[Rfam]
RNA sequence: UCAAUCAGAUGAUGAGACUCAGAAAAUCUUAGGACACCUUCCUACACAGUUAUAAAAUAACUGUGGAUGAGAAAGACUUUCUAUCUCUGAUGAUAAG
Numbered sequence: 001u002c003a004a005u006c007a008g009a010u011g012a013u014g015a016g017a018c019u020c021a022g023a024a025a026a027u028c029u030u031a032g033g034a035c036a037c038c039u040u041c042c043u044a045c046a047c048a049g050u051u052a053u054a055a056a057a058u059a060a061c062u063g064u065g066g067a068u069g070a071g072a073a074a075g076a077c078u079u080u081c082u083a084u085c086u087c088u089g090a091u092g093a094u095a096a097g
Base pairs, nucleotide, nucleotide: 001097004094005093006092007091042049043048
The record is a 97-nucleotide sequence from Amborella trichopoda, which matches "Small nucleolar RNA snoR31/Z110/Z27" in Rfam. The organism belongs to Amborella, within Eukaryota. The literature on the family includes a 2001 paper in J Mol Biol by Barneche et al., "Identification of 66 box C/D snoRNAs in Arabidopsis thaliana: extensive gene duplications generated multiple isoforms predicting new ribosomal RNA 2'-O-methylation sites". Gene Ontology terms of the family: nucleolus and RNA processing.